[Rfam]
RNA sequence: GCUCAGAGGCAGGGGUUUCUUUCGGCCUCCAGCCGAAUUGGAUAGUUGUAGGCCGGCGGAAACUACUUGCUUUUGAGC
Number, nucleotide and partner (000 for none) at each position: 001g000002c000003u000004c000005a074006g073007a072008g071009g000010c069011a068012g067013g066014g064015g063016u062017u061018u060019c059020u058021u000022u056023c055024g054025g053026c052027c051028u050029c000030c048031a047032g046033c000034c000035g000036a000037a000038u000039u000040g000041g000042a000043u000044a000045g000046u032047u031048g030049u000050a028051g027052g026053c025054c024055g023056g022057c000058g020059g019060a018061a017062a016063c015064u014065a000066c013067u012068u011069g010070c000071u008072u007073u006074u005075g000076a000077g000078c000

Overview: mir-2796 microRNA precursor family: a 78-nucleotide RNA from Ladona fulva. Lineage of the source: Eukaryota > Altocrustacea > Anisoptera > Libelluloidea > Ladona.